[Rfam]
RNA sequence: AAAAAGUGGAGCAGUACCACAUCAAAAAACGGGCGUACCGAAAAGCCUCAAGAGUAGGACAAAU
Numbered sequence: 001a002a003a004a005a006g007u008g009g010a011g012c013a014g015u016a017c018c019a020c021a022u023c024a025a026a027a028a029a030c031g032g033g034c035g036u037a038c039c040g041a042a043a044a045g046c047c048u049c050a051a052g053a054g055u056a057g058g059a060c061a062a063a064u
Stems, first nucleotide, its partner, number of pairs: 006020004032047003038058002